RNA sequence: AGCUUUGCGCAGUGGCAAUAUUUUAGCCAGGGAGGUUUAUCUGAGGCAUGAUUAUUGCUAAUUGAAAACUUUUCACAAUACCCUGCCAUGACGACUUGAAAUAUAGUCGGCAUUGACAAUUUUUGACAGUCUCUAUGGAGA
Numbered sequence: 001a002g003c004u005u006u007g008c009g010c011a012g013u014g015g016c017a018a019u020a021u022u023u024u025a026g027c028c029a030g031g032g033a034g035g036u037u038u039a040u041c042u043g044a045g046g047c048a049u050g051a052u053u054a055u056u057g058c059u060a061a062u063u064g065a066a067a068a069c070u071u072u073u074c075a076c077a078a079u080a081c082c083c084u085g086c087c088a089u090g091a092c093g094a095c096u097u098g099a100a101a102u103a104u105a106g107u108c109g110g111c112a113u114u115g116a117c118a119a120u121u122u123u124u125g126a127c128a129g130u131c132u133c134u135a136u137g138g139a140g141a
Stems, first nucleotide, its partner, number of pairs: 020052003024048001026047003034042002085117001087115001088113003092109005130141004
Shown here is a 141-nucleotide RNA from Pongo abelii, a member of the family "U4 spliceosomal RNA". A reference for the family is Bertram et al. (2017), "Cryo-EM Structure of a Pre-catalytic Human Spliceosome Primed for Activation", Cell. Rfam's curators write: U4 small nuclear RNA (U4 snRNA) is a component of the major U2-dependent spliceosome. The organism belongs to Pongo, within Eukaryota. The family's RNA type in Rfam is spliceosomal small nuclear RNA.